[Rfam]
Shown here is a 139-nucleotide sequence from Ceyx cyanopectus, a member of the family "Small nucleolar RNA SNORA46". It is annotated as an H/ACA-box small nucleolar RNA. ACA46 is a member of the H/ACA class of snoRNA that guide the sites of modification of uridines to pseudouridines. Rfam links the family to the GO terms nucleolus and RNA processing.
RNA sequence: AGCACUAUUUUUAAACCUGUUGGUGAAAUUCCCUGACCACGAUGGGUUACGCUAUAGUGCAAAAGAAUCUCCUGGCACUUGAGAGUGUGGCUGACCUUGCUCUGUUCAGCUGAUGCUCUUCUGAAGCCAAGGAACAAAA
Number, nucleotide and partner (000 for none) at each position: 001a000002g060003c059004a058005c057006u056007a055008u054009u000010u000011u000012u000013a000014a048015a047016c046017c045018u000019g000020u000021u042022g000023g040024u039025g038026a000027a000028a000029u000030u000031c000032c000033c000034u000035g000036a000037c000038c025039a024040c023041g000042a021043u000044g000045g017046g016047u015048u014049a000050c000051g000052c000053u000054a008055u007056a006057g005058u004059g003060c002061a000062a000063a000064a000065g000066a000067a000068u134069c000070u133071c132072c131073u130074g128075g127076c126077a000078c000079u123080u000081g121082a120083g000084a000085g116086u115087g114088u112089g111090g110091c109092u000093g107094a106095c000096c000097u000098u000099g000100c000101u000102c000103u000104g000105u000106u094107c093108a000109g091110c090111u089112g088113a000114u087115g086116c085117u000118c000119u000120u082121c081122u000123g079124a000125a000126g076127c075128c074129a000130a073131g072132g071133a070134a068135c000136a000137a000138a000139a000